Notes: Shown here is a 94-nucleotide sequence from Synechococcus phage S-H25, a member of the family "PhotoRC-II RNA". It is annotated as a cis-regulatory element. The base pairs follow the family's consensus structure, which is taken from published work.

Nucleotides: 094
Stems, first nucleotide, its partner, number of pairs: 011037005018032002025053005060080007
Number, partner (000 for none) and nucleotide at each position: 001000u002000u003000a004000c005000a006000a007000a008000a009000c010000c011037c012036c013035u014034g015033c016000c017000g018032c019031u020000u021000g022000a023000c024000c025053g026052a027051g028050a029049c030000u031019a032018g033015g034014c035013a036012g037011g038000g039000u040000u041000a042000c043000c044000a045000a046000u047000c048000c049029g050028u051027c052026u053025c054000u055000c056000a057000u058000g059000u060080c061079c062078u063077c064076g065075u066074c067000u068000a069000a070000g071000g072000g073000u074066g075065a076064c077063g078062a079061g080060g081000a082000a083000a084000u085000a086000g087000u088000a089000a090000c091000u092000c093000c094000a